[Rfam]
RNA: Small nucleolar RNA SNORA11
Nucleotides: 131
Base pairs, nucleotide, nucleotide: 002055003054004053005052006051007050013044014043015042016041017040018039019038020037021036023035024034068124069123071121075117076116077115080113081112083104084103085102087100088099089098090097091096
Number, partner (000 for none) and nucleotide at each position: 001000a002055g003054g004053g005052u006051g007050u008000g009000c010000u011000c012000a013044g014043a015042a016041c017040a018039g019038g020037g021036g022000g023035c024034c025000u026000g027000a028000a029000g030000a031000a032000a033000c034024g035023g036021c037020u038019u039018c040017u041016g042015u043014u044013u045000a046000c047000a048000a049000g050007a051006c052005a053004c054003c055002c056000a057000a058000c059000a060000a061000g062000a063000a064000u065000c066000u067000g068124g069123g070000u071121u072000c073000a074000c075117u076116g077115u078000g079000a080113c081112a082000a083104g084103g085102g086000g087100c088099a089098c090097c091096a092000g093000a094000c095000u096091u097090g098089g099088u100087g101000c102085c103084u104083u105000u106000g107000u108000c109000c110000u111000g112081u113080g114000a115077g116076c117075a118000a119000a120000u121071a122000c123069c124068u125000u126000c127000c128000a129000c130000g131000u